[Rfam]
RNA sequence: CGGUGUCUGACGAGAACGUUCGUAUAGUACGAGAGGAACUACGAACGGCUGCCACUGGUGUACCGGUUGUCCGAGAGGGCAUGUGCCGGGCAGCUACGCAGCACGGGGUAAGAGCUGAAAGCAUCUAAGCUCGAAACCCACUUGGAAAAGAGACACCGCUGAGAUCACUCGUAGAAGACGAGUUCGAUAGACUCGGGAUGUACGCGCCGAGGCAACGAGGCGUUCAGUCCGCGAGCACUAACAGAUCGAAG
Numbered sequence: 001c002g003g004u005g006u007c008u009g010a011c012g013a014g015a016a017c018g019u020u021c022g023u024a025u026a027g028u029a030c031g032a033g034a035g036g037a038a039c040u041a042c043g044a045a046c047g048g049c050u051g052c053c054a055c056u057g058g059u060g061u062a063c064c065g066g067u068u069g070u071c072c073g074a075g076a077g078g079g080c081a082u083g084u085g086c087c088g089g090g091c092a093g094c095u096a097c098g099c100a101g102c103a104c105g106g107g108g109u110a111a112g113a114g115c116u117g118a119a120a121g122c123a124u125c126u127a128a129g130c131u132c133g134a135a136a137c138c139c140a141c142u143u144g145g146a147a148a149a150g151a152g153a154c155a156c157c158g159c160u161g162a163g164a165u166c167a168c169u170c171g172u173a174g175a176a177g178a179c180g181a182g183u184u185c186g187a188u189a190g191a192c193u194c195g196g197g198a199u200g201u202a203c204g205c206g207c208c209g210a211g212g213c214a215a216c217g218a219g220g221c222g223u224u225c226a227g228u229c230c231g232c233g234a235g236c237a238c239u240a241a242c243a244g245a246u247c248g249a250a251g
Stems, first nucleotide, its partner, number of pairs: 001158008011144004017047008048102005056096003063089005068081005105139003112132005163247004167183005188240003192235004196230003204223005211216001

Overview: Shown here is a 251-nucleotide part of an RNA from Salarchaeum sp. JOR-1, a member of the family "Archaeal large subunit ribosomal RNA". Pairs were carried over by alignment from the consensus structure, which is taken from published work.